[Rfam]
RNA sequence: AAUUAUUAGCGAAUCGACUGAUACUAUUUAUAUUAUAAAAAAACCUGCCCGAAAGCAGGUUUUUGUUUAAU
Numbered sequence: 001a002a003u004u005a006u007u008a009g010c011g012a013a014u015c016g017a018c019u020g021a022u023a024c025u026a027u028u029u030a031u032a033u034u035a036u037a038a039a040a041a042a043a044c045c046u047g048c049c050c051g052a053a054a055g056c057a058g059g060u061u062u063u064u065g066u067u068u069a070a071u
Base pairs, nucleotide, nucleotide: 004023005022006021007020008019009018039064040063041062042061043060044059045058046057047056048055

A member of the RNA family "Enterobacterial sRNA STnc370" from Salmonella enterica, 71 nucleotides long. It is one of the family's seed sequences. Pairs were carried over by alignment from the consensus structure, which was predicted with WAR. The family's RNA type in Rfam is small RNA. The organism belongs to Salmonella enterica subsp. enterica serovar Javiana, within Bacteria.